[Rfam]
Annotation: The family of this 96-nucleotide sequence from Terrihalobacillus insolitus is "Glycine riboswitch aptamer". Taxonomically the source falls in Terrihalobacillus (Bacteria, Bacillati, Bacilli, Caryophanales). Its family is annotated with glycine biosynthetic process in the Gene Ontology. This family represents the bacterial glycine riboswitch.
RNA sequence: AUGACUGCUGUGGGAGAGAACGUAGAUAUACGUCACCGAAGGGGCAAAUCUUCAAAGAAAGAUGAAUCUCUCAGGUAAAAAGACUAUAGUAGGCUA
Numbered sequence: 001a002u003g004a005c006u007g008c009u010g011u012g013g014g015a016g017a018g019a020a021c022g023u024a025g026a027u028a029u030a031c032g033u034c035a036c037c038g039a040a041g042g043g044g045c046a047a048a049u050c051u052u053c054a055a056a057g058a059a060a061g062a063u064g065a066a067u068c069u070c071u072c073a074g075g076u077a078a079a080a081a082g083a084c085u086a087u088a089g090u091a092g093g094c095u096a
Stems, first nucleotide, its partner, number of pairs: 006091008020033004035076003038072002042070003048063004